[Rfam]
A member of the RNA family "Purine riboswitch aptamer" from Bacillus sp. FJAT-27916, 102 nucleotides long. It scores 85 bits against the family's covariance model. A reference for the family is Mandal et al. (2003), "Riboswitches Control Fundamental Biochemical Pathways in Bacillus subtilis and Other Bacteria", Cell. The source organism's lineage runs through Bacteria, Bacillati, Bacillota, Caryophanales and Bacillus.
RNA sequence: AUCACAUAAUUUAAUAAUCUUCGUAUAAUCAUGGGGAUAUGGCCCAUAAGUUUCUACCGAGCUACCGUUAAUGGCUUGACUACGAGUAAAUGAUGAUAUACC
Numbered sequence: 001a002u003c004a005c006a007u008a009a010u011u012u013a014a015u016a017a018u019c020u021u022c023g024u025a026u027a028a029u030c031a032u033g034g035g036g037a038u039a040u041g042g043c044c045c046a047u048a049a050g051u052u053u054c055u056a057c058c059g060a061g062c063u064a065c066c067g068u069u070a071a072u073g074g075c076u077u078g079a080c081u082a083c084g085a086g087u088a089a090a091u092g093a094u095g096a097u098a099u100a101c102c
Base pairs, nucleotide, nucleotide: 018088020086021085022084023083024082025081029049031047032046033045034044035043058078059077060076061075062074063073064072